[Rfam]
RNA sequence: CCACCAUCACCAUCAUCAAGCAUAACCUUUCAGGUUCGUGCUGGAAGGUCUAUGGAUGCCUUUCAGCGGAACAGUGUUACAGCUAAACCCCCGGAAGGCCUCCGGGGGUUUUUCGUU
Number, nucleotide and partner (000 for none) at each position: 001c000002c000003a000004c000005c000006a000007u000008c040009a039010c038011c000012a035013u034014c033015a000016u000017c000018a000019a000020g031021c000022a000023u000024a000025a000026c000027c000028u000029u000030u000031c020032a000033g014034g013035u012036u000037c000038g010039u009040g008041c066042u065043g064044g063045a062046a061047g060048g059049u000050c000051u000052a000053u000054g000055g000056a000057u000058g000059c048060c047061u046062u045063u044064c043065a042066g041067c000068g000069g000070a000071a000072c000073a000074g000075u000076g000077u000078u000079a000080c000081a000082g114083c000084u000085a111086a110087a109088c108089c107090c106091c105092c104093g103094g102095a101096a000097g000098g000099c000100c000101u095102c094103c093104g092105g091106g090107g089108g088109u087110u086111u085112u000113u000114c082115g000116u000117u000